[Rfam]
RNA sequence: GCACGCCAUGCGUAUUCGAUAAGCCGGCAACAAAAAAGCGGAUUUACCACGAAUGUGGGCUUUUUUGAGCUGCUUAUGAUUACGUAUGUAGACAUAGAUCGCGAUUUGGAUAGCUUUUUGCUAUUCCUUGUUUCGCUUCGUGCUCUCACGUGAUUAUGCAGAUCUAAGCCCGCAUGCGGACUUGGAUCUGCAUUUUUUAU
Numbered sequence: 001g002c003a004c005g006c007c008a009u010g011c012g013u014a015u016u017c018g019a020u021a022a023g024c025c026g027g028c029a030a031c032a033a034a035a036a037a038g039c040g041g042a043u044u045u046a047c048c049a050c051g052a053a054u055g056u057g058g059g060c061u062u063u064u065u066u067g068a069g070c071u072g073c074u075u076a077u078g079a080u081u082a083c084g085u086a087u088g089u090a091g092a093c094a095u096a097g098a099u100c101g102c103g104a105u106u107u108g109g110a111u112a113g114c115u116u117u118u119u120g121c122u123a124u125u126c127c128u129u130g131u132u133u134c135g136c137u138u139c140g141u142g143c144u145c146u147c148a149c150g151u152g153a154u155u156a157u158g159c160a161g162a163u164c165u166a167a168g169c170c171c172g173c174a175u176g177c178g179g180a181c182u183u184g185g186a187u188c189u190g191c192a193u194u195u196u197u198u199a200u
Stems, first nucleotide, its partner, number of pairs: 004091001007088007019077006027071001031067009044058004093142003097138002101136004109132002119130002156193006163186002166183003170179003
Notes:
Enterococcus sRNA 1300: a 200-nucleotide sequence from Paenibacillus contaminans. The source organism's lineage runs through Bacteria, Bacillati, Bacilli, Paenibacillaceae and Paenibacillus. The base pairs follow the family's consensus structure, which was predicted with RNAfold. Expressed in mid and late exponential phases of growth. Expression remained uniform under daptomycin exposure.